The record is an 88-nucleotide sequence from Haemonchus contortus, which matches "mir-5912 microRNA precursor family" in Rfam. The family's consensus secondary structure was predicted with RNAalifold. Taxonomically the source falls in Haemonchus (Eukaryota, Opisthokonta, Nematoda, Rhabditina).
Nucleotides: 088
Base pairs, nucleotide, nucleotide: 012078013077015075016074017073018072019071021069022068023067024066025065026064028063029062030061031060032059033058034057035056036055037054042053043052044051045050
Number, partner (000 for none) and nucleotide at each position: 001000a002000c003000u004000u005000u006000g007000g008000u009000g010000u011000g012078g013077g014000g015075u016074g017073g018072g019071g020000u021069u022068a023067g024066g025065u026064g027000c028063a029062u030061u031060c032059g033058g034057g035056u036055a037054u038000g039000u040000c041000c042053u043052c044051g045050g046000g047000u048000a049000g050045u051044c052043g053042g054037a055036u056035a057034u058033u059032c060031g061030a062029a063028u064026c065025a066024u067023c068022u069021g070000c071019u072018c073017c074016c075015a076000g077013c078012c079000a080000a081000g082000c083000u084000a085000u086000a087000u088000u